[Rfam]
RNA: c-di-AMP riboswitch aptamer (ydaO/yuaA leader)
Organism: Nonomuraea montanisoli
RNA sequence: GAGUCCCUCGGGCCGAAUCCACGCAGCGGUUGCGUGGAGCCGGGGACCCAUUCCCCUCAUGGGGCGAAUCGGCAUGUCACCGCCGUAGGGCCGCUUCCAGGCCCGAGCCCGUCAGCUAACCCGGUAGGCCGUAUGGAAGGACCUU
Numbered sequence: 001g002a003g004u005c006c007c008u009c010g011g012g013c014c015g016a017a018u019c020c021a022c023g024c025a026g027c028g029g030u031u032g033c034g035u036g037g038a039g040c041c042g043g044g045g046a047c048c049c050a051u052u053c054c055c056c057u058c059a060u061g062g063g064g065c066g067a068a069u070c071g072g073c074a075u076g077u078c079a080c081c082g083c084c085g086u087a088g089g090g091c092c093g094c095u096u097c098c099a100g101g102c103c104c105g106a107g108c109c110c111g112u113c114a115g116c117u118a119a120c121c122c123g124g125u126a127g128g129c130c131g132u133a134u135g136g137a138a139g140g141a142c143c144u145u
Base pairs, nucleotide, nucleotide: 011130012129013128014127018038019037020036021035022034023033024032025031026030039125040124041123042122043121044120049061050060062110063109064108070085071084072083073082088104089103090102091101